Archaeal large subunit ribosomal RNA: a 581-nucleotide part of an RNA from uncultured marine crenarchaeote SAT1000-49-D2. Rfam's curators put it in the seed alignment.

RNA sequence: CUUCCAUCGGGGAGAGAAGACCCCGUGGAGUUUUACUGCAGCUUGUGCUUGUAGUAUAGUAAGAAUUACAUAGUGUAUCUGGUAGCCAUGCCUGAAUUUCUUUGGGAAUUCAGUGAAGCGACGAUGUAACACCAGAUUAUUCUUGCAGUACUUCUUAUCUGAUGCAAAUCAGAAACAGGUGCUGGUAGGCAGUUCGGCUGGGGCGGCACCCCUUUGAAAAGAUAUCAAAGGGGCCCAAAGUUUAGUUCAAACGGGUCAGAAAUCCGUUGAAGAGGGCAAAGCCAAAAACUAGACUGACAGGAUUUCCAAACGCACGGAAUUCUGAGACGAAAGUCUGGCUUAGCGAUCCUUCGUGUGCCCACUAUUGGGGCCCGGAGGUGACAGAAAAAUUACCCCAGGGAUAACAGGCUCGUCGCGGGCGAGAGCUCCUAUCGACCCCGCGGUUUGGUACCUCGAUGUCGGCUUUUCCUAUCCUGGUCCUGCAGCAGGGGCCAAGGGUGAGGCUGCUCGCCUAUUAAAAGGGAACAUGAGCUGGGUUUAGACCGUCGUGAGACAGGUCGGUCUCUGCCUGAUGGAAGCGC
Dot-bracket structure: ((((((((.(((.((......((.(.(((((((.((((...((.((((..(.(((((.((((((((.(.........(((((..((.........(((((....)))))........))............)))))).)))))))).))))).)...((((........)))).....)))).))....))))..((((.....))).)((((((...........))))))..((....((((((((.((((((.......))))))...))((......))....))))))....(((((((((.........))))))))).(.(....).).))..........(((((.(.((((.......)))))))))).........)))))..))).))........(((.((((((((...((.......))...)))))))..))))..........(((((((((((..((..(((((......)))))....))..((((.....))))......)))))..)..)))).).....(((((((....))).))))....))..)))))))))))...